[Rfam]
Nucleotides: 059
Stems, first nucleotide, its partner, number of pairs: 001059003005055008014046005021039005
Number, partner (000 for none) and nucleotide at each position: 001059u002058u003057c004000g005055u006054g007053u008052u009051u010050c011049g012048g013000u014046g015045a016044a017043u018042g019000c020000g021039u022038c023037a024036a025035a026000a027000a028000g029000c030000g031000c032000a033000a034000a035025u036024u037023u038022g039021a040000a041000a042018c043017g044016u045015u046014u047000u048012c049011c050010g051009a052008a053007a054006c055005a056000g057003g058002a059001a